[Rfam]
RNA sequence: GGGCUGGCUUUAUUUAGCUCAGCGGUUCCUGCGCACUGAACUUUCAGUUCGCUGAGCACUCUUGUCCGCAAGGGUGGUUUGAGACCCGUGGGUGCUCUCUAGCCCUUAA
Numbered sequence: 001g002g003g004c005u006g007g008c009u010u011u012a013u014u015u016a017g018c019u020c021a022g023c024g025g026u027u028c029c030u031g032c033g034c035a036c037u038g039a040a041c042u043u044u045c046a047g048u049u050c051g052c053u054g055a056g057c058a059c060u061c062u063u064g065u066c067c068g069c070a071a072g073g074g075u076g077g078u079u080u081g082a083g084a085c086c087c088g089u090g091g092g093u094g095c096u097c098u099c100u101a102g103c104c105c106u107u108a109a
Base pairs, nucleotide, nucleotide: 002104003103004102005101006100007099017093018092019091020090022089023088024087025086030083032081033080
This 109-nucleotide RNA from Molossus molossus belongs to the Rfam family "Vault RNA". This family of RNAs are found as part of the enigmatic vault ribonucleoprotein complex. A search with the family's covariance model found it, with a score of 49 bits. Rfam classes the family as a non-coding RNA gene.